[Rfam]
RNA sequence: CCCAGAGGUAUUGAUUGGUGAGAUUCUUCAGUACACGUUUCGUACUCUUUUCUUGCACCGACCUGCGCAGACGCGCAGGUUUUUUUU
Numbered sequence: 001c002c003c004a005g006a007g008g009u010a011u012u013g014a015u016u017g018g019u020g021a022g023a024u025u026c027u028u029c030a031g032u033a034c035a036c037g038u039u040u041c042g043u044a045c046u047c048u049u050u051u052c053u054u055g056c057a058c059c060g061a062c063c064u065g066c067g068c069a070g071a072c073g074c075g076c077a078g079g080u081u082u083u084u085u086u087u
Base pairs, nucleotide, nucleotide: 016060017059018058019057020056023049030046031045032044033043034042061080062079063078064077065076066075067074068073